[Rfam]
RNA sequence: UUGGUUCCGGUUCACCUCAACCCGCUGGUCAGCAGGAUCGGCGGCGAGGACCCGGCGGCC
Numbered sequence: 001u002u003g004g005u006u007c008c009g010g011u012u013c014a015c016c017u018c019a020a021c022c023c024g025c026u027g028g029u030c031a032g033c034a035g036g037a038u039c040g041g042c043g044g045c046g047a048g049g050a051c052c053c054g055g056c057g058g059c060c
Base pairs, nucleotide, nucleotide: 003060004059005058007055008054009053010052015049016048017047018046022044023043024042025041026040027039028038029037030036
RNA: L31-Actinobacteria ribosomal protein leader